[Rfam]
RNA: Fluoride riboswitch aptamer (crcB RNA motif)
RNA sequence: AUUUGCAUAGGCAAUGAGGUCUGCCAUUAACUGCCGUAAAAAGCUGAUGACUUCUACCAGCAA
Numbered sequence: 001a002u003u004u005g006c007a008u009a010g011g012c013a014a015u016g017a018g019g020u021c022u023g024c025c026a027u028u029a030a031c032u033g034c035c036g037u038a039a040a041a042a043g044c045u046g047a048u049g050a051c052u053u054c055u056a057c058c059a060g061c062a063a
Stems, first nucleotide, its partner, number of pairs: 010025004016054006033044002